[Rfam]
RNA sequence: AUAAUGAUACUCCCUUACAGCCACAGUCCGAGCGUUCAAAGCGUCGCAGGCAAUGGGUAGGGCCGCGCGAGAACCGCGCGGGGGUGGGAUUCCCGUGG
Dot-bracket structure: ...........(((((((......................................))))))(((.(((.....))).)))(((.......))))...
The record is a 98-nucleotide sequence, which matches "pemK RNA" in Rfam. The sequence is in the family's curated seed alignment.